[Rfam]
RNA sequence: GUGUUAGAUGUGAUGAGUUUGUCAUGUCUCUUCUCUGACUAUCCCUGGAGAAAGAUUUAACCUCUCUGAUCUCAACAC
Dot-bracket structure: (((((....................................................................)))))
Numbered sequence: 001g002u003g004u005u006a007g008a009u010g011u012g013a014u015g016a017g018u019u020u021g022u023c024a025u026g027u028c029u030c031u032u033c034u035c036u037g038a039c040u041a042u043c044c045c046u047g048g049a050g051a052a053a054g055a056u057u058u059a060a061c062c063u064c065u066c067u068g069a070u071c072u073c074a075a076c077a078c
Stems, first nucleotide, its partner, number of pairs: 001078005